Shown here is an 81-nucleotide sequence from Lophium mytilinum, a member of the family "tRNA". It scores 52 bits against the family's covariance model. Pairs were carried over by alignment from the consensus structure, which is taken from published work. The family's RNA type in Rfam is transfer RNA. The organism belongs to Lophium, within Eukaryota. A reference for the family is Hou (1993), "The tertiary structure of tRNA and the development of the genetic code", Trends Biochem Sci.

[Rfam]
RNA sequence: GGUGUCAUGGUCUAGUGGUUAGGACAUAUCGUUGUGGAGCACAACCCCGAUAUAACCCGCGUUCGAUUCGCGGUGACGCCA
Numbered sequence: 001g002g003u004g005u006c007a008u009g010g011u012c013u014a015g016u017g018g019u020u021a022g023g024a025c026a027u028a029u030c031g032u033u034g035u036g037g038a039g040c041a042c043a044a045c046c047c048c049g050a051u052a053u054a055a056c057c058c059g060c061g062u063u064c065g066a067u068u069c070g071c072g073g074u075g076a077c078g079c080c081a
Stems, first nucleotide, its partner, number of pairs: 001080007010025004027052005057073005